Shown here is a 96-nucleotide sequence from Symbiodinium natans, a member of the family "Small nucleolar RNA snR60/Z15/Z230/Z193/J17". The organism belongs to Symbiodinium, within Eukaryota. Rfam classes the family as a C/D-box small nucleolar RNA. Pairs were carried over by alignment from the consensus structure. A search with the family's covariance model found it, with a score of 54 bits. Its family is annotated with nucleolus and RNA processing in the Gene Ontology. On this family, see Qu et al., Nucleic Acids Res 2001: "Identification of 10 novel snoRNA gene clusters from Arabidopsis thaliana".
RNA sequence: CCCUUGGCUAUGAAGAUGCCUUGAUUUGCAUAGUUCACUCGGACUCAACACGUGACGAGAAAUCUCAAUGUCUUUCGCUCCUAUCUGAGCCAAUCG
Numbered sequence: 001c002c003c004u005u006g007g008c009u010a011u012g013a014a015g016a017u018g019c020c021u022u023g024a025u026u027u028g029c030a031u032a033g034u035u036c037a038c039u040c041g042g043a044c045u046c047a048a049c050a051c052g053u054g055a056c057g058a059g060a061a062a063u064c065u066c067a068a069u070g071u072c073u074u075u076c077g078c079u080c081c082u083a084u085c086u087g088a089g090c091c092a093a094u095c096g
Base pairs, nucleotide, nucleotide: 004093005092006091007090008089